[Rfam]
This 80-nucleotide RNA from Suricata suricatta belongs to the Rfam family "Small nucleolar RNA U2-19". Rfam links the family to the GO terms nucleolus and RNA processing. A search with the family's covariance model found it, with a score of 91 bits.
RNA sequence: GAUUAUUAAAAUCAAUAGCCAAAUCUGAGCAUCAGAAGACCUUCCAGUCUACCUGAUGCAUGAUCUCUAUAGUUCUGAGA
Numbered sequence: 001g002a003u004u005a006u007u008a009a010a011a012u013c014a015a016u017a018g019c020c021a022a023a024u025c026u027g028a029g030c031a032u033c034a035g036a037a038g039a040c041c042u043u044c045c046a047g048u049c050u051a052c053c054u055g056a057u058g059c060a061u062g063a064u065c066u067c068u069a070u071a072g073u074u075c076u077g078a079g080a
Base pairs, nucleotide, nucleotide: 029059030058031057032056033055037050038049039048040047
It is annotated as a C/D-box small nucleolar RNA.